[Rfam]
RNA sequence: CCCCCGACGGGGCGAGAAGACCCUGUGGACCUUUACUGCAGCCCGUCGUUGGGGUGGGGGAGGGGGUGCAUAGUGUAGGUGGGAGCGAUGAACCAUGGUCUCCGGGCCGUGGGGAUGCGUCAAUGAAACACCACCCAUCUCCUCCUCUGCCCCUAACCCUGGGGUUCACCCAGGGGACAGCGGCGGGUUGGCAGUUUGGCUGGGGCGGCACACCUCUGAAAAGAUAUCAGGGGUGCCCUAAGCUCCGCUCAGGUCGGUCAGAAACCGACCGUAGAGGGUAAGGCCAAAUGCGGGGCUGACUGCCCCCUUGAACGCUAGGGGGGCAGGGGGGAAACCCGGGCCUAGCGAACGCUCGUGCCCCCACUGGAGGGGGCCGGGCAUGUCGGAAAAGGUACCCCAGGAGUAACCGGCUCGUCGCGGGUGAGAGUUCCCAUCGACCCCGCGGUUUGGUACCCAGACGUCGUCUCUUCCCAUCCUGGCGGUGCAGCAGCCGCCAAGGGUGGGGCUGCCCGCCCAUUAAAGGGGAACGUGAGAUGGGUUCAGACCGUCGUGAGACAGGUCGGUCUCUACCUGUCGGGGGUGCU
Numbered sequence: 001c002c003c004c005c006g007a008c009g010g011g012g013c014g015a016g017a018a019g020a021c022c023c024u025g026u027g028g029a030c031c032u033u034u035a036c037u038g039c040a041g042c043c044c045g046u047c048g049u050u051g052g053g054g055u056g057g058g059g060g061a062g063g064g065g066g067u068g069c070a071u072a073g074u075g076u077a078g079g080u081g082g083g084a085g086c087g088a089u090g091a092a093c094c095a096u097g098g099u100c101u102c103c104g105g106g107c108c109g110u111g112g113g114g115a116u117g118c119g120u121c122a123a124u125g126a127a128a129c130a131c132c133a134c135c136c137a138u139c140u141c142c143u144c145c146u147c148u149g150c151c152c153c154u155a156a157c158c159c160u161g162g163g164g165u166u167c168a169c170c171c172a173g174g175g176g177a178c179a180g181c182g183g184c185g186g187g188u189u190g191g192c193a194g195u196u197u198g199g200c201u202g203g204g205g206c207g208g209c210a211c212a213c214c215u216c217u218g219a220a221a222a223g224a225u226a227u228c229a230g231g232g233g234u235g236c237c238c239u240a241a242g243c244u245c246c247g248c249u250c251a252g253g254u255c256g257g258u259c260a261g262a263a264a265c266c267g268a269c270c271g272u273a274g275a276g277g278g279u280a281a282g283g284c285c286a287a288a289u290g291c292g293g294g295g296c297u298g299a300c301u302g303c304c305c306c307c308u309u310g311a312a313c314g315c316u317a318g319g320g321g322g323g324c325a326g327g328g329g330g331g332a333a334a335c336c337c338g339g340g341c342c343u344a345g346c347g348a349a350c351g352c353u354c355g356u357g358c359c360c361c362c363a364c365u366g367g368a369g370g371g372g373g374c375c376g377g378g379c380a381u382g383u384c385g386g387a388a389a390a391g392g393u394a395c396c397c398c399a400g401g402a403g404u405a406a407c408c409g410g411c412u413c414g415u416c417g418c419g420g421g422u423g424a425g426a427g428u429u430c431c432c433a434u435c436g437a438c439c440c441c442g443c444g445g446u447u448u449g450g451u452a453c454c455c456a457g458a459c460g461u462c463g464u465c466u467c468u469u470c471c472c473a474u475c476c477u478g479g480c481g482g483u484g485c486a487g488c489a490g491c492c493g494c495c496a497a498g499g500g501u502g503g504g505g506c507u508g509c510c511c512g513c514c515c516a517u518u519a520a521a522g523g524g525g526a527a528c529g530u531g532a533g534a535u536g537g538g539u540u541c542a543g544a545c546c547g548u549c550g551u552g553a554g555a556c557a558g559g560u561c562g563g564u565c566u567c568u569a570c571c572u573g574u575c576g577g578g579g580g581u582g583c584u
Stems, first nucleotide, its partner, number of pairs: 001580008010572003014567002022401004027397002029393005035195004042187007051153018078135005085118003096109005157175007198211001199209003212234006237340002243295006249275002252270006276285002300326009328337001330335001351379005357374001359373004410451003414448001415445007425435002462537001463535004467529001468526005475500002479494005503515004543561004547556003
Record summary:
The record is a 584-nucleotide part of an RNA from Caldivirga maquilingensis, which matches "Archaeal large subunit ribosomal RNA" in Rfam. A search with the family's covariance model found it, with a score of 2723 bits. Its family is annotated with ribosome and structural constituent of ribosome in the Gene Ontology.